[Rfam]
RNA sequence: GUCAUUCCCAGAUACAAUGGACAAUAUGCUGUUAUAAUUGUGUGGCAUUGUCCUUGCUGUUUGGAGAUAAU
Number, nucleotide and partner (000 for none) at each position: 001g000002u000003c000004a068005u067006u066007c000008c064009c063010a062011g061012a060013u059014a058015c056016a055017a054018u000019g053020g052021a051022c050023a049024a000025u000026a048027u047028g046029c045030u044031g043032u042033u000034a000035u000036a000037a000038u000039u000040g000041u000042g032043u031044g030045g029046c028047a027048u026049u023050g022051u021052c020053c019054u017055u016056g015057c000058u014059g013060u012061u011062u010063g009064g008065a000066g006067a005068u004069a000070a000071u000